[Rfam]
Overview: Rfam assigns this 84-nucleotide sequence from Cuculus canorus to the family "Small nucleolar RNA SNORD53/SNORD92". On this family, see Huttenhofer et al., EMBO J 2001: "RNomics: an experimental approach that identifies 201 candidates for novel, small, non-messenger RNAs in mouse". The family's RNA type in Rfam is C/D-box small nucleolar RNA. The pairing is the family consensus, mapped onto this sequence. The family has 37 seed sequences and 2,250 matches in Rfam 15.1. The family is grouped with related families in Rfam's "SNORD52 clan".
RNA sequence: UUGCUAUGAUGAUACUCUCAACUGUGGUUUCGACUUGCUGAGAGUUGCAUGAGGACGCUAAAUUCCUUGGCUGUGUCUGAGCAG
Numbered sequence: 001u002u003g004c005u006a007u008g009a010u011g012a013u014a015c016u017c018u019c020a021a022c023u024g025u026g027g028u029u030u031c032g033a034c035u036u037g038c039u040g041a042g043a044g045u046u047g048c049a050u051g052a053g054g055a056c057g058c059u060a061a062a063u064u065c066c067u068u069g070g071c072u073g074u075g076u077c078u079g080a081g082c083a084g
Base pairs, nucleotide, nucleotide: 001084002083003082004081